[Rfam]
RNA: PyrR binding site
RNA sequence: AUGACCUUUAAUAUAGUCCCGUGAGGCUAUCAAGGAAAUCUGCGCGUAAACUAUUUUUUGACAUAGUUUUAAACAGAAACGGCUAUCUUAAAGGGAUCUUCUUUAGAUAGUCGUUUUUUCU
Numbered sequence: 001a002u003g004a005c006c007u008u009u010a011a012u013a014u015a016g017u018c019c020c021g022u023g024a025g026g027c028u029a030u031c032a033a034g035g036a037a038a039u040c041u042g043c044g045c046g047u048a049a050a051c052u053a054u055u056u057u058u059u060g061a062c063a064u065a066g067u068u069u070u071a072a073a074c075a076g077a078a079a080c081g082g083c084u085a086u087c088u089u090a091a092a093g094g095g096a097u098c099u100u101c102u103u104u105a106g107a108u109a110g111u112c113g114u115u116u117u118u119u120c121u
Stems, first nucleotide, its partner, number of pairs: 005035004013030006044074001048069007056061001077116012090103001